The record is a 137-nucleotide RNA sequence from Vibrio thalassae, which matches "Histidine operon leader" in Rfam.
RNA sequence: UCAUCACCAUCAUCACCCAGCUUAAUCUUUCGGGAGAUGAACGCAUACCCGAGAGAUAGGUAAAACUCUCGGAGGUUCGAUUUAAGAUUUAAAGAAUUAAACCCUCGGGAGACCAAAGCUCCCGAGGGUUUUUUCUU
Numbered sequence: 001u002c003a004u005c006a007c008c009a010u011c012a013u014c015a016c017c018c019a020g021c022u023u024a025a026u027c028u029u030u031c032g033g034g035a036g037a038u039g040a041a042c043g044c045a046u047a048c049c050c051g052a053g054a055g056a057u058a059g060g061u062a063a064a065a066c067u068c069u070c071g072g073a074g075g076u077u078c079g080a081u082u083u084a085a086g087a088u089u090u091a092a093a094g095a096a097u098u099a100a101a102c103c104c105u106c107g108g109g110a111g112a113c114c115a116a117a118g119c120u121c122c123c124g125a126g127g128g129u130u131u132u133u134u135c136u137u
Stems, first nucleotide, its partner, number of pairs: 009046002011039004017034002020031001048072002051070005096134001099131013
Rfam's curators write: At least 6 amino acid operons are known to be regulated by attenuation. In each a leader sequence of 150-200 bp is found upstream of the first gene in the operon. This leader sequence can assume two different secondary structures known as the terminator and the anti-terminator structure. In each case the leader also codes for very short peptide sequence that is rich in the end product amino acid of the operon. The terminator structure is recognised as a termination signal for RNA polymerase and the operon is not transcribed. This structure forms when the cell has an excess of the regulatory amino acid and ribosome movement over the leader transcript is not impeded. When there is a deficiency of the charged tRNA of the regulatory amino acid the ribosome translating the leader peptide stalls and the antiterminator structure can form. This allows RNA polymerase to transcribe the operon. In the Rfam alignment the consensus structure is of the terminator structure. The match comes from Rfam's covariance-model search (92 bits). Its family is annotated with histidine biosynthetic process in the Gene Ontology. A reference for the family is Kolter and Yanofsky (1982), "Attenuation in amino acid biosynthetic operons", Annu Rev Genet.